[Rfam]
RNA sequence: UAUGCCGUGAGGCACGGAGUGAAGGAAGCGAGCCUGCAAAACCUGGUUCCAACGAACAGGAACUGGAUACAGAGGCUGUACAAGUCGGAUGAGGUACCACACCAUACUGACGUCCAAAGGAUGGCUUGCCAUUUUGGUACUUGUGCAGUAGAUCCAGUGGAUAUUGGGUGAAGGAAUAUGCC
Numbered sequence: 001u002a003u004g005c006c007g008u009g010a011g012g013c014a015c016g017g018a019g020u021g022a023a024g025g026a027a028g029c030g031a032g033c034c035u036g037c038a039a040a041a042c043c044u045g046g047u048u049c050c051a052a053c054g055a056a057c058a059g060g061a062a063c064u065g066g067a068u069a070c071a072g073a074g075g076c077u078g079u080a081c082a083a084g085u086c087g088g089a090u091g092a093g094g095u096a097c098c099a100c101a102c103c104a105u106a107c108u109g110a111c112g113u114c115c116a117a118a119g120g121a122u123g124g125c126u127u128g129c130c131a132u133u134u135u136g137g138u139a140c141u142u143g144u145g146c147a148g149u150a151g152a153u154c155c156a157g158u159g160g161a162u163a164u165u166g167g168g169u170g171a172a173g174g175a176a177u178a179u180g181c182c
Base pairs, nucleotide, nucleotide: 001016003014004013005012006011028182031179037174041169042168043167044166045165046164048161049160050159051158063157064156065155066154067153068152075149076148077147079145080144081143082142083141084140085139087115088114089113090112093108094107095106096105
Dot-bracket structure: (.((((....)))).)...........(..(.....(...((((((.((((...........((((((......(((.(((((((.((((..((((........))))...)))).......................))))))).)))..))))))))))..))))))....)....)..)

Shown here is a 182-nucleotide RNA sequence from Imperialibacter sp. EC-SDR9, a member of the family "Group II catalytic intron D1-D4-3". The organism belongs to Imperialibacter, within Bacteria. Group II introns are found in rRNA, tRNA and mRNA of organelles in fungi, plants and protists, and also in mRNA in bacteria.